[Rfam]
RNA: Mammalian CPEB3 ribozyme
RNA sequence: GUCGCAAUGUUUGAGGCCAUAGCAGAAGUGAUUAUGGUGUGGCCUGUCAGAUUUGAAUGAAUCUAUGAAUUCUGCU
Numbered sequence: 001g002u003c004g005c006a007a008u009g010u011u012u013g014a015g016g017c018c019a020u021a022g023c024a025g026a027a028g029u030g031a032u033u034a035u036g037g038u039g040u041g042g043c044c045u046g047u048c049a050g051a052u053u054u055g056a057a058u059g060a061a062u063c064u065a066u067g068a069a070u071u072c073u074g075c076u
Base pairs, nucleotide, nucleotide: 015044016043017042018041021076022075023074024073025072026071027070028040029039030038049064050063051062052061053060054059